A member of the RNA family "Small nucleolar RNA SNORA56" from Monodelphis domestica, 135 nucleotides long. Clan: SNORA56 clan. The base pairs follow the family's consensus structure. The sequence is in the family's curated seed alignment. ACA56 is a member of the H/ACA class of snoRNA that guide the sites of modification of uridines to pseudouridines.
[Rfam]
Nucleotides: 135
Base pairs, nucleotide, nucleotide: 003059004058005057006056007055008054020045021044022043023042024041025038026037072128073127074126075125076124077123078122081121082120083119087115089113093110094109095108096107097106100105
Number, partner (000 for none) and nucleotide at each position: 001000a002000a003059g004058c005057a006056g007055a008054c009000a010000g011000u012000u013000a014000u015000c016000c017000c018000u019000u020045u021044c022043u023042g024041g025038u026037c027000u028000u029000c030000c031000u032000c033000u034000c035000g036000u037026g038025a039000c040000c041024u042023u043022a044021g045020a046000g047000g048000g049000a050000g051000u052000c053000a054008g055007u056006c057005u058004g059003c060000a061000a062000c063000a064000u065000g066000a067000a068000g069000u070000g071000a072128u073127g074126g075125c076124a077123a078122g079000c080000u081121g082120u083119u084000u085000c086000u087115g088000g089113c090000c091000a092000g093110c094109a095108u096107c097106a098000c099000a100105g101000u102000g103000u104000g105100u106097u107096g108095a109094u110093g111000g112000u113089g114000g115087u116000u117000u118000c119083a120082g121081c122078c123077u124076u125075g126074c127073c128072a129000g130000a131000c132000a133000c134000c135000c